[Rfam]
RNA: Iron response element II
RNA sequence: UCGUUAUCUGUAACAGUGUUUUGCAACAAUUA
Numbered sequence: 001u002c003g004u005u006a007u008c009u010g011u012a013a014c015a016g017u018g019u020u021u022u023g024c025a026a027c028a029a030u031u032a
Base pairs, nucleotide, nucleotide: 001032003030004029005028007026009025010024011023012021013020014018